[Rfam]
The family of this 73-nucleotide sequence from Thermomonospora cellulosilytica is "L31-Actinobacteria ribosomal protein leader".
RNA sequence: GCGGUACCGGUUCACGCCGCCCCGCAGGGAGCGUCCCGUCGAGGGCGCGGGGGUGCGAGGCGACCCGGCGACC
Numbered sequence: 001g002c003g004g005u006a007c008c009g010g011u012u013c014a015c016g017c018c019g020c021c022c023c024g025c026a027g028g029g030a031g032c033g034u035c036c037c038g039u040c041g042a043g044g045g046c047g048c049g050g051g052g053g054u055g056c057g058a059g060g061c062g063a064c065c066c067g068g069c070g071a072c073c
Stems, first nucleotide, its partner, number of pairs: 003073003007068004015062004020057001022055001